Rfam assigns this 94-nucleotide RNA sequence from Arabidopsis thaliana to the family "MIR781 microRNA precursor family". The sequence is in the family's curated seed alignment. Rfam 15.1 lists 4 matches to the family in 3 species. Pairs were carried over by alignment from the consensus structure, which was predicted with RNAalifold.
RNA sequence: UCAAAUUAGAGUUUUCUGGAUACUUAUUAGUUACUAACAAAGAGAGGGCUUCUUCGAUAUUAACUUUUAAGUAUCCAGAAAACUCUAAAUUUGA
Numbered sequence: 001u002c003a004a005a006u007u008a009g010a011g012u013u014u015u016c017u018g019g020a021u022a023c024u025u026a027u028u029a030g031u032u033a034c035u036a037a038c039a040a041a042g043a044g045a046g047g048g049c050u051u052c053u054u055c056g057a058u059a060u061u062a063a064c065u066u067u068u069a070a071g072u073a074u075c076c077a078g079a080a081a082a083c084u085c086u087a088a089a090u091u092u093g094a
Stems, first nucleotide, its partner, number of pairs: 006088021029065005035059002038056001040054005
Dot-bracket structure: .....(((((((((((((((((((((..(((((.((.(.(((((.....))))).).)).)))))..)))))))))))))))))))))......